[Rfam]
The family of this 137-nucleotide sequence from Callorhinus ursinus is "Small nucleolar RNA SNORA70". Its family is annotated with RNA processing and nucleolus in the Gene Ontology. Rfam's curators write: snoRNA U70 seems to be exclusive to mammals and is a member of the H/ACA class of snoRNA which contain H (ANANNA) and ACA box motifs. A search with the family's covariance model found it, with a score of 94 bits. Pairs were carried over by alignment from the consensus structure, which was predicted with PFOLD. For this family Rfam cites "Pseudouridine in RNA: what, where, how, and why" (Charette and Gray, IUBMB Life, 2000). The family's RNA type in Rfam is H/ACA-box small nucleolar RNA.

RNA sequence: CAUCAGUUUUUUAAAAUAACGGUCUUUUUCUUUCCCUGCGGGGACCCAGUGUGCAAGGGCUGCAAACAAUAGCCUCCUUGGGGGUGUAUGCAGCCUGGUGACUGUAUGGGUUGCCCUAAGGGACCUUGCAGACAACC
Numbered sequence: 001c002a003u004c005a006g007u008u009u010u011u012u013a014a015a016a017u018a019a020c021g022g023u024c025u026u027u028u029u030c031u032u033u034c035c036c037u038g039c040g041g042g043g044a045c046c047c048a049g050u051g052u053g054c055a056a057g058g059g060c061u062g063c064a065a066a067c068a069a070u071a072g073c074c075u076c077c078u079u080g081g082g083g084g085u086g087u088a089u090g091c092a093g094c095c096u097g098g099u100g101a102c103u104g105u106a107u108g109g110g111u112u113g114c115c116c117u118a119a120g121g122g123a124c125c126u127u128g129c130a131g132a133c134a135a136c137c
Base pairs, nucleotide, nucleotide: 004053005052019050020049022047027044028043029042030041080125081124091113092112093111094110095109096108